[Rfam]
RNA: Selenocysteine insertion sequence 4
Organism: Lacrimispora algidixylanolytica
RNA sequence: GGGACUUGUACACGUUGCGGUGCAACAAUGACAAGAGA
Numbered sequence: 001g002g003g004a005c006u007u008g009u010a011c012a013c014g015u016u017g018c019g020g021u022g023c024a025a026c027a028a029u030g031a032c033a034a035g036a037g038a
Base pairs, nucleotide, nucleotide: 006030014026015025016024017023018022